The family of this 120-nucleotide RNA sequence from Brassica napus is "MIR9563 microRNA precursor family".
RNA sequence: GAAAUAUAAAAACUCGUCUCUUAACUUUUAACUAAAAAAACUAAGAACCGUAAACUCUUAUUUAAGAGCCGGUUCUUAGUUUUUUUAAAUUAAAAGUUAAGAGUCAGGUUCUUAUAUUCC
Numbered sequence: 001g002a003a004a005u006a007u008a009a010a011a012a013c014u015c016g017u018c019u020c021u022u023a024a025c026u027u028u029u030a031a032c033u034a035a036a037a038a039a040a041c042u043a044a045g046a047a048c049c050g051u052a053a054a055c056u057c058u059u060a061u062u063u064a065a066g067a068g069c070c071g072g073u074u075c076u077u078a079g080u081u082u083u084u085u086u087a088a089a090u091u092a093a094a095a096g097u098u099a100a101g102a103g104u105c106a107g108g109u110u111c112u113u114a115u116a117u118u119c120c
Stems, first nucleotide, its partner, number of pairs: 001120001003118007011110004016105001018103014033088001035086005041079007

It scores 94 bits against the family's covariance model.